This 70-nucleotide RNA sequence from Rhynochetos jubatus belongs to the Rfam family "Small nucleolar RNA SNORD73". The match comes from Rfam's covariance-model search (75 bits).

RNA sequence: AAUGAAUGAUGACAACAUGUUUCGGUCCCAGAUGACAUGGAAUGAUUAUAUUUUCCCAUUUUCUGACAUU
Numbered sequence: 001a002a003u004g005a006a007u008g009a010u011g012a013c014a015a016c017a018u019g020u021u022u023c024g025g026u027c028c029c030a031g032a033u034g035a036c037a038u039g040g041a042a043u044g045a046u047u048a049u050a051u052u053u054u055c056c057c058a059u060u061u062u063c064u065g066a067c068a069u070u
Stems, first nucleotide, its partner, number of pairs: 001070004